The family of this 72-nucleotide RNA sequence from Williopsis mrakii is "tRNA".

RNA sequence: CAGAUAAAAGCCAACCGGUGAGGCGCUUUCUUUGGGAGAAAGAGUUAGUUAGUUCGAUUCUAGCUUAUCUGA
Numbered sequence: 001c002a003g004a005u006a007a008a009a010g011c012c013a014a015c016c017g018g019u020g021a022g023g024c025g026c027u028u029u030c031u032u033u034g035g036g037a038g039a040a041a042g043a044g045u046u047a048g049u050u051a052g053u054u055c056g057a058u059u060c061u062a063g064c065u066u067a068u069c070u071g072a
Base pairs, nucleotide, nucleotide: 001071002070003069004068005067006066007065010024011023012022026042027041028040029039030038048064049063050062051061052060
Source information
The family's consensus secondary structure is taken from published work. Rfam classes the family as a transfer RNA.